[Rfam]
RNA sequence: AUUUAUCUGCCGAGUUUGCCUUUCGGCAAACGUCGCAUUAUUAUAUGUGCUUUUUCACUUCGUUGCAAAAGCACGGAAAAAACUUUUUUCGGAAGCUGAGGCUUCCUGCAAAAAGUUUUUAUGGGA
Numbered sequence: 001a002u003u004u005a006u007c008u009g010c011c012g013a014g015u016u017u018g019c020c021u022u023u024c025g026g027c028a029a030a031c032g033u034c035g036c037a038u039u040a041u042u043a044u045a046u047g048u049g050c051u052u053u054u055u056c057a058c059u060u061c062g063u064u065g066c067a068a069a070a071g072c073a074c075g076g077a078a079a080a081a082a083c084u085u086u087u088u089u090c091g092g093a094a095g096c097u098g099a100g101g102c103u104u105c106c107u108g109c110a111a112a113a114a115g116u117u118u119u120u121a122u123g124g125g126a
Base pairs, nucleotide, nucleotide: 012034013033014031015030016029017028018027019026020025047074048073049072050071051070052069053068054067078120079119080118081117082116083115084114085113086112087111088110091106092105093104094103095102096101